Overview: The family of this 61-nucleotide RNA sequence from Paenibacillus rhizosphaerae is "Fluoride riboswitch aptamer (crcB RNA motif)". A reference for the family is Baker et al. (2012), "Widespread genetic switches and toxicity resistance proteins for fluoride", Science. The organism belongs to Paenibacillus, within Bacteria.
[Rfam]
RNA sequence: AACAACAUAGGCGAUGGAGUUCGCCUUUAACCGCCCGUGAGCUAAUGACUCCUACCAGUGC
Numbered sequence: 001a002a003c004a005a006c007a008u009a010g011g012c013g014a015u016g017g018a019g020u021u022c023g024c025c026u027u028u029a030a031c032c033g034c035c036c037g038u039g040a041g042c043u044a045a046u047g048a049c050u051c052c053u054a055c056c057a058g059u060g061c
Base pairs, nucleotide, nucleotide: 010025011024012023013022016052017051018050019049020048021047033042034041